[Rfam]
RNA sequence: ACCCCUUUGCCAACACUCUGGCCCUGAACCCUCUCCUCACGGAUUGGCAAGAAUCAAUGUUCUAGGCCUAUUUUGGUGCAAAGGAGAUGGACUUUGACCAUUUACUCACCGGUCCGCCUUUUACUCCGUAAGCGUGCUGGUCCUUUUUCUUCGGUCUACAU
Number, nucleotide and partner (000 for none) at each position: 001a000002c000003c000004c000005c000006u000007u081008u080009g079010c000011c000012a000013a000014c000015a000016c000017u000018c000019u000020g068021g067022c066023c065024c000025u000026g062027a061028a060029c059030c000031c000032u000033c000034u000035c000036c000037u000038c000039a000040c000041g000042g000043a000044u000045u000046g000047g000048c000049a000050a000051g000052a000053a000054u000055c000056a000057a000058u000059g029060u028061u027062c026063u000064a000065g023066g022067c021068c020069u000070a000071u000072u000073u000074u000075g000076g000077u000078g000079c009080a008081a007082a000083g000084g000085a000086g000087a000088u000089g000090g000091a000092c000093u000094u000095u000096g156097a155098c154099c153100a000101u000102u000103u000104a000105c000106u000107c000108a000109c140110c139111g138112g137113u000114c000115c134116g133117c000118c132119u131120u130121u000122u000123a000124c000125u000126c000127c000128g000129u000130a120131a119132g118133c116134g115135u000136g000137c112138u111139g110140g109141u000142c000143c000144u000145u000146u000147u000148u000149c000150u000151u000152c000153g099154g098155u097156c096157u000158a000159c000160a000161u000